[Rfam]
RNA sequence: GUGCUGCUCUAGCAGCACUUCAAUAUUGGGAUUAUUGCUCACAGGUUGCCAGUAUUGUGUGUGCUGCUCUAGCAUCGC
Numbered sequence: 001g002u003g004c005u006g007c008u009c010u011a012g013c014a015g016c017a018c019u020u021c022a023a024u025a026u027u028g029g030g031a032u033u034a035u036u037g038c039u040c041a042c043a044g045g046u047u048g049c050c051a052g053u054a055u056u057g058u059g060u061g062u063g064c065u066g067c068u069c070u071a072g073c074a075u076c077g078c
Base pairs, nucleotide, nucleotide: 001078002077003076005074006073007072010071011068012067013066014065015064016063017062018061022056023055024054025053026052027051028050029049
mir-16 microRNA precursor family: a 78-nucleotide RNA from Polypterus senegalus. Clan: mir-15 clan. The family's consensus secondary structure was predicted with PFOLD. Gene Ontology terms of the family: RISC complex and miRNA-mediated post-transcriptional gene silencing. The literature on the family includes a 2002 paper in Proc Natl Acad Sci U S A by Calin et al., "Frequent deletions and down-regulation of micro- RNA genes miR15 and miR16 at 13q14 in chronic lymphocytic leukemia".